[Rfam]
RNA sequence: CGUAACCACGCGGGGUGUCCCACCGGGGGACUGAGACGGGCCGCGCGCCCGAACCCGUCGAACCUGAUCUCGUUCACACGAGCGGAGAACGGUGGGCAUGCUUCCCG
Dot-bracket structure: .....((((.((((.((((((.....)))))......((((.....)))))..))))......((...((((......))))...))....))))............
RNA: TPP riboswitch aptamer (THI element)